A member of the RNA family "Small nucleolar RNA SNORD24" from Clupea harengus, 69 nucleotides long. The base pairs follow the family's consensus structure, which was predicted with PFOLD. The family's RNA type in Rfam is C/D-box small nucleolar RNA. The source organism's lineage runs through Eukaryota, Opisthokonta, Actinopteri, Clupeiformes and Clupea.
RNA sequence: UGCAGAUGAUGUAAAUAAACUUUGCUAUCGUAACACCAAUGUCGACACUCCACCAAGAUCGCUGAUGCA
Numbered sequence: 001u002g003c004a005g006a007u008g009a010u011g012u013a014a015a016u017a018a019a020c021u022u023u024g025c026u027a028u029c030g031u032a033a034c035a036c037c038a039a040u041g042u043c044g045a046c047a048c049u050c051c052a053c054c055a056a057g058a059u060c061g062c063u064g065a066u067g068c069a
Stems, first nucleotide, its partner, number of pairs: 001069004